[Rfam]
The record is a 76-nucleotide RNA sequence from Rhamnella rubrinervis, which matches "MIR473 microRNA precursor family" in Rfam. The source organism's lineage runs through Eukaryota, Viridiplantae, Tracheophyta, Rhamneae and Rhamnella.

RNA sequence: UUUGUUGACUCUCCCUGAAGGCUUCUAGCACUGCCCAUAUCUGCAGAAGCUAGAGGCCUUCAGGGAGAGUCGACAG
Number, nucleotide and partner (000 for none) at each position: 001u000002u000003u000004g000005u000006u072007g071008a070009c069010u068011c067012u066013c065014c064015c063016u062017g061018a060019a059020g058021g057022c056023u055024u054025c053026u000027a000028g000029c000030a000031c000032u000033g000034c000035c000036c000037a000038u000039a000040u000041c000042u000043g000044c000045a000046g000047a000048a000049g000050c000051u000052a000053g025054a024055g023056g022057c021058c020059u019060u018061c017062a016063g015064g014065g013066a012067g011068a010069g009070u008071c007072g006073a000074c000075a000076g000

Notes
It scores 62 bits against the family's covariance model. Its family is annotated with RISC complex and miRNA-mediated post-transcriptional gene silencing in the Gene Ontology. The base pairs follow the family's consensus structure, which was predicted with WAR.